Notes
A member of the RNA family "L31-Gammaproteobacteria ribosomal protein leader" from Vibrio rotiferianus, 51 nucleotides long. The literature on the family includes a 2020 paper in BMC Microbiol by Eckert and Weinberg, "Discovery of 20 novel ribosomal leader candidates in bacteria and archaea".
RNA sequence: CGUGUGGUGUGCGGCAUAGAUUCGUAUAGCGACACGGCCUACUAUUGAGGU
Numbered sequence: 001c002g003u004g005u006g007g008u009g010u011g012c013g014g015c016a017u018a019g020a021u022u023c024g025u026a027u028a029g030c031g032a033c034a035c036g037g038c039c040u041a042c043u044a045u046u047g048a049g050g051u
Stems, first nucleotide, its partner, number of pairs: 001036005007030002011025004015019001